This 36-nucleotide RNA sequence from Catagonus wagneri belongs to the Rfam family "Iron response element I". Rfam classes the family as a cis-regulatory element. The base pairs follow the family's consensus structure, which is taken from published work.
RNA sequence: CUGUUUCCUCCUUCAACAGUGCUUGGAAGGAACUUG
Numbered sequence: 001c002u003g004u005u006u007c008c009u010c011c012u013u014c015a016a017c018a019g020u021g022c023u024u025g026g027a028a029g030g031a032a033c034u035u036g
Stems, first nucleotide, its partner, number of pairs: 001036001003034001005032004012027005017021001

On this family, see Hentze et al., Science 1987: "Identification of the iron-responsive element for the translational regulation of human ferritin mRNA". The organism belongs to Catagonus, within Eukaryota.